[Rfam]
RNA: Small nucleolar RNA snR191
RNA sequence: UCCCAUCGUUAAGUCAAGGCUCCAACCUGCACUCCGUGCAAACCUCUAUGGAUGGAAUCUGUUACAACUUUGGGAGAUUGAUCUUGGCCCGCCGCUCAGAGCCGUCAUGGUAAUGGGUUGAUUUGGUCACCGUUUUGGUGGUCGGUCGAAAGGGUUGAGAAUGAUUCGUUCAGAGUUGAGAUUCGUCUCUGCCUUCGGGCAGCUUCAUGGCGAUUCUCUUAGUAACGUUUCAUACAUUC
Dot-bracket structure: ..(((...........(((.((((.(.(((((...)))))..........).)))).)))........)..))..........(((.((...((((((..(((.....)))..))))).)....((((((((...))))))))........)).)..)).((((..(((........((((..((((.(((((....)))))......))))..))))......)))..))))......